[Rfam]
RNA sequence: AGGAAGGCUUCCACGACGCUCGUCGUCCGGGGGCCUUUUUCUUUUGC
Numbered sequence: 001a002g003g004a005a006g007g008c009u010u011c012c013a014c015g016a017c018g019c020u021c022g023u024c025g026u027c028c029g030g031g032g033g034c035c036u037u038u039u040u041c042u043u044u045u046g047c
Base pairs, nucleotide, nucleotide: 005036006035007034008033009032010031011030012029015027016026017025018024
RNA: ctRNA